[Rfam]
The record is a 367-nucleotide RNA sequence from Brevibacterium casei, which matches "Bacterial RNase P class A" in Rfam.
A search with the family's covariance model found it, with a score of 294 bits.
The organism belongs to Brevibacterium casei, within Bacteria.

RNA sequence: ACAGGUCACCAGACGGCCGCGGCCCUAUGGGCUGAGGAACGUCCGGGCUCCGCAGAGCAGGAUGGUGGGUAACACCCACCCGGGGCAACCCGCGGGCAAGUGCAACAGAGAGCAGACCGCCUGUCGACCGCGUCGGCAGGUAAGGGUGAAACGGUGGUGUAAGAGACCACCAGAGUGCCGGGUGACCGGUGCUGCUGGGUAAACCCCAUCCGGAGCAAGAUCAGACAGACGGCGUUCGAGGCUGCUCGCCGAGCCGUCGGGUGGAUCGCUUGAGGCCGGUGGUGACAUCGGUCCCAGAUAGAUGGCCGUCAGUCGAGGAGGGUGACCGACUCGAUGACAGAACCCGGCGUAUCGGUGGCCUGUCCUC
Number, nucleotide and partner (000 for none) at each position: 001a363002c362003a361004g360005g359006u358007c357008a356009c355010c354011a352012g310013a309014c308015g307016g306017c305018c304019g000020c034021g033022g032023c031024c030025c029026u000027a000028u000029g025030g024031g023032c022033u021034g020035a000036g000037g000038a000039a350040c349041g348042u000043c347044c346045g345046g344047g343048c215049u214050c213051c212052g000053c000054a000055g247056a246057g245058c244059a000060g211061g210062a209063u208064g207065g079066u078067g077068g076069g075070u000071a000072a000073c000074a000075c069076c068077c067078a066079c065080c094081c092082g091083g090084g089085g000086c000087a000088a000089c084090c083091c082092g081093c000094g080095g206096g205097c000098a000099a000100g204101u203102g200103c199104a000105a000106c000107a000108g000109a000110g000111a000112g000113c000114a000115g000116a000117c145118c144119g141120c140121c139122u138123g137124u136125c135126g134127a133128c000129c000130g000131c000132g000133u127134c126135g125136g124137c123138a122139g121140g120141u119142a000143a000144g118145g117146g000147u000148g000149a000150a000151a000152c000153g171154g170155u169156g168157g167158u166159g000160u000161a000162a000163g000164a000165g000166a158167c157168c156169a155170c154171c153172a000173g195174a193175g192176u191177g190178c189179c188180g187181g186182g000183u000184g000185a000186c181187c180188g179189g178190u177191g176192c175193u174194g000195c173196u000197g000198g000199g103200u102201a000202a000203a101204c100205c096206c095207c064208a063209u062210c061211c060212g051213g050214a049215g048216c000217a000218a000219g267220a266221u265222c264223a000224g000225a000226c000227a000228g258229a257230c256231g255232g254233c253234g000235u000236u000237c000238g000239a000240g250241g249242c248243u000244g058245c057246u056247c055248g242249c241250c240251g000252a000253g233254c232255c231256g230257u229258c228259g000260g000261g000262u000263g000264g222265a221266u220267c219268g000269c000270u000271u000272g000273a000274g293275g292276c291277c290278g289279g288280u287281g286282g000283u000284g000285a000286c281287a280288u279289c278290g277291g276292u275293c274294c000295c000296a000297g000298a000299u000300a000301g000302a000303u000304g018305g017306c016307c015308g014309u013310c012311a000312g000313u000314c000315g000316a000317g000318g000319a000320g000321g000322g000323u000324g000325a000326c000327c000328g000329a000330c000331u000332c000333g000334a000335u000336g000337a000338c000339a000340g000341a000342a000343c047344c046345c045346g044347g043348c041349g040350u039351a000352u011353c000354g010355g009356u008357g007358g006359c005360c004361u003362g002363u001364c000365c000366u000367c000